[Rfam]
RNA sequence: GGUCUUUGCGAGAACCGCGUGAAUCCAGUAGUGUAGUGAUUCGCGCGGUUCUCGACGGUU
Numbered sequence: 001g002g003u004c005u006u007u008g009c010g011a012g013a014a015c016c017g018c019g020u021g022a023a024u025c026c027a028g029u030a031g032u033g034u035a036g037u038g039a040u041u042c043g044c045g046c047g048g049u050u051c052u053c054g055a056c057g058g059u060u
Stems, first nucleotide, its partner, number of pairs: 009054017

Rfam assigns this 60-nucleotide RNA sequence to the family "Plastid-ccsA-ndhD-2 3UTR RNA". On this family, see Zandueta-Criado and Bock, Nucleic Acids Res 2004: "Surprising features of plastid ndhD transcripts: addition of non-encoded nucleotides and polysome association of mRNAs with an unedited start codon". The sequence is in the family's curated seed alignment. Rfam classes the family as a cis-regulatory element. Pairs were carried over by alignment from the consensus structure, which was predicted with LocARNA. Rfam describes the family as follows. Plastid ccsA-ndhD-2 is a non-coding RNA (ncRNA) recognised in plastids. It was found in the three prime untranslated region (3UTR) of ccsA and ndhD genes, its 3UTR location suggests a role in transcript maturation.